[Rfam]
RNA sequence: GCGGGGCGCGUCUAGGGUUCCGCCGCGGCGACGCGGGUCUGGUCCGAGAGACGCAGGCGGUCCACACCGGAAACGGGACCGUUCCACGGCGGGAGAAAAGCCCGGGAGGC
Numbered sequence: 001g002c003g004g005g006g007c008g009c010g011u012c013u014a015g016g017g018u019u020c021c022g023c024c025g026c027g028g029c030g031a032c033g034c035g036g037g038u039c040u041g042g043u044c045c046g047a048g049a050g051a052c053g054c055a056g057g058c059g060g061u062c063c064a065c066a067c068c069g070g071a072a073a074c075g076g077g078a079c080c081g082u083u084c085c086a087c088g089g090c091g092g093g094a095g096a097a098a099a100g101c102c103c104g105g106g107a108g109g110c
Base pairs, nucleotide, nucleotide: 008054009053010052011051012050015045016044020042021041022039023036024035025034026033027032056083057082058081059080060079061078062077063076085105087108091103092102093101
RNA: Guanidine-I riboswitch aptamer
Organism: Kutzneria kofuensis